RNA sequence: UGGCGCCGUCGCGACUGGCGCGGGAGCAUCCUUCCGAGGAGCUCCAGGGUGGGCCUACCACCGGGGAACGACUGACACGGAUGUGGCCGUACGCCUGGGCCACCGCA
Numbered sequence: 001u002g003g004c005g006c007c008g009u010c011g012c013g014a015c016u017g018g019c020g021c022g023g024g025a026g027c028a029u030c031c032u033u034c035c036g037a038g039g040a041g042c043u044c045c046a047g048g049g050u051g052g053g054c055c056u057a058c059c060a061c062c063g064g065g066g067a068a069c070g071a072c073u074g075a076c077a078c079g080g081a082u083g084u085g086g087c088c089g090u091a092c093g094c095c096u097g098g099g100c101c102a103c104c105g106c107a
Base pairs, nucleotide, nucleotide: 006074008072009071010070011069015065016064017095018094019093020092049061050060051059052058084102085101086100087099088098

ZMP/ZTP riboswitch aptamer (pfl RNA motif): a 107-nucleotide RNA from Naasia lichenicola.
Its family is annotated with regulation of purine nucleotide biosynthetic process and one-carbon metabolic process in the Gene Ontology.
The base pairs follow the family's consensus structure, which is taken from published work.